[Rfam]
RNA sequence: ACAUCGUUUUUUAUCAUCGGUCUACCGAGCAAUUUCACCCGUUCGGUGGAAGAUCUUCCCUGUGACGU
Number, nucleotide and partner (000 for none) at each position: 001a000002c000003a000004u065005c064006g063007u000008u000009u000010u000011u000012u000013a057014u000015c000016a054017u053018c052019g000020g000021u050022c049023u048024a047025c046026c045027g044028a043029g042030c041031a000032a000033u000034u000035u000036c000037a000038c000039c000040c000041g030042u029043u028044c027045g026046g025047u024048g023049g022050a021051a000052g018053a017054u016055c000056u000057u013058c000059c000060c000061u000062g000063u006064g005065a004066c000067g000068u000

Shown here is a 68-nucleotide RNA from Bombyx mori, a member of the family "mir-2774 microRNA precursor family". The literature on the family includes a 2010 paper in BMC Genomics by Liu et al., "MicroRNAs of Bombyx mori identified by Solexa sequencing". The match comes from Rfam's covariance-model search (59 bits). Its family is annotated with RISC complex and miRNA-mediated post-transcriptional gene silencing in the Gene Ontology. The organism belongs to Bombyx, within Eukaryota. The family's consensus secondary structure was predicted with RNAalifold.